Rfam assigns this 60-nucleotide RNA from [Phormidium ambiguum] IAM M-71 to the family "Nitrogen stress-induced RNA 1". The literature on the family includes a 2010 paper in J Mol Biol by Ionescu et al., "Heterocyst-specific transcription of NsiR1, a non-coding RNA encoded in a tandem array of direct repeats in cyanobacteria". The base pairs follow the family's consensus structure.

RNA sequence: UGGUAGAUGCACCCUGAUAAGACUAACACCCCUCGACUGGUUGGGUCGGGGGUUUUUUAU
Numbered sequence: 001u002g003g004u005a006g007a008u009g010c011a012c013c014c015u016g017a018u019a020a021g022a023c024u025a026a027c028a029c030c031c032c033u034c035g036a037c038u039g040g041u042u043g044g045g046u047c048g049g050g051g052g053u054u055u056u057u058u059a060u
Stems, first nucleotide, its partner, number of pairs: 002013003029052005035047004